[Rfam]
RNA sequence: ACACUCCCAUCUCCGUUUUUACAUCUCCCUCUUCCUAACAUAGCCAAAUCUUUCCCUUGGGAGUAACAGCCUUAUGGUUGAAAUCCCAUCUCGAGGAGGGGUUUUAGUUGGUAGGCGCUACGGCGAAUCCGACACUACCCCCCUUCAGGGGGUGUCAUUUGAUGAGAAGAUUUCCCCUCCUCGAGGCUA
Number, nucleotide and partner (000 for none) at each position: 001a000002c000003a000004c000005u000006c000007c000008c000009a000010u000011c000012u000013c000014c000015g000016u000017u000018u000019u000020u000021a000022c000023a000024u000025c000026u000027c000028c000029c000030u000031c000032u000033u000034c000035c000036u062037a000038a000039c059040a058041u000042a000043g000044c000045c000046a000047a000048a000049u000050c000051u000052u000053u000054c000055c000056c000057u000058u040059g039060g000061g000062a036063g000064u000065a000066a000067c000068a188069g187070c186071c185072u184073u000074a000075u000076g000077g000078u000079u000080g000081a000082a000083a000084u000085c000086c000087c000088a000089u000090c000091u000092c183093g182094a181095g180096g179097a000098g176099g175100g174101g000102u000103u000104u000105u000106a000107g133108u132109u131110g130111g129112u000113a000114g000115g000116c125117g124118c123119u000120a000121c000122g000123g118124c117125g116126a000127a000128u000129c111130c110131g109132a108133c107134a000135c154136u000137a000138c152139c151140c150141c149142c000143c000144u000145u000146c000147a000148g000149g141150g140151g139152g138153u000154g135155u000156c000157a000158u000159u000160u000161g000162a000163u000164g000165a000166g000167a000168a000169g000170a000171u000172u000173u000174c100175c099176c098177c000178u000179c096180c095181u094182c093183g092184a072185g071186g070187c069188u068189a000
RNA: R2 RNA element
Organism: Agrilus planipennis